Shown here is a 339-nucleotide part of an RNA from Achlya hypogyna, a member of the family "Eukaryotic large subunit ribosomal RNA". The family's consensus secondary structure is taken from published work.

[Rfam]
RNA sequence: CGUAUCGUUUCCAGUGUUAUAUCCUGUGCAUAUUUCAUUAGCGGAGCAAUUUGCUGGUGCCCUGUGCAUGGGUGUGACGUCAGAGUCAGUUUGUAUGCUGCGGGAGAUGGUCAGUGAGGAGGUGCUUCACUUCGGUGAAAGUUAUAUCUCGCUGUCUAGUAGCCGUGGUUGAGACUGAGGUGCCUACAACAUGCCUUGGGGUUCGGGGCUGUCUUGUUUUGGAAACUGCUUGGAUAGCUUGCUAUGUCUGUGGUUUUUCAGAGCAAUUGAUGGUGUCGAUAACCCCUGCUGUUCGGGACUCUGGCGAAAUGGAGCGAUACGACCCGUCUUGAAACACGG
Numbered sequence: 001c002g003u004a005u006c007g008u009u010u011c012c013a014g015u016g017u018u019a020u021a022u023c024c025u026g027u028g029c030a031u032a033u034u035u036c037a038u039u040a041g042c043g044g045a046g047c048a049a050u051u052u053g054c055u056g057g058u059g060c061c062c063u064g065u066g067c068a069u070g071g072g073u074g075u076g077a078c079g080u081c082a083g084a085g086u087c088a089g090u091u092u093g094u095a096u097g098c099u100g101c102g103g104g105a106g107a108u109g110g111u112c113a114g115u116g117a118g119g120a121g122g123u124g125c126u127u128c129a130c131u132u133c134g135g136u137g138a139a140a141g142u143u144a145u146a147u148c149u150c151g152c153u154g155u156c157u158a159g160u161a162g163c164c165g166u167g168g169u170u171g172a173g174a175c176u177g178a179g180g181u182g183c184c185u186a187c188a189a190c191a192u193g194c195c196u197u198g199g200g201g202u203u204c205g206g207g208g209c210u211g212u213c214u215u216g217u218u219u220u221g222g223a224a225a226c227u228g229c230u231u232g233g234a235u236a237g238c239u240u241g242c243u244a245u246g247u248c249u250g251u252g253g254u255u256u257u258u259c260a261g262a263g264c265a266a267u268u269g270a271u272g273g274u275g276u277c278g279a280u281a282a283c284c285c286c287u288g289c290u291g292u293u294c295g296g297g298a299c300u301c302u303g304g305c306g307a308a309a310u311g312g313a314g315c316g317a318u319a320c321g322a323c324c325c326g327u328c329u330u331g332a333a334a335c336a337c338g339g
Stems, first nucleotide, its partner, number of pairs: 001321011017077008081303007324339004
Dot-bracket structure: (((((((((((.....((((((((.............................................))))))))...(((((((.................................................................................................................................................................................................................))))))).......)))))))))))..((((........))))
Taxonomically the source falls in Achlya (Eukaryota, Sar, Oomycota, Saprolegniomycetes).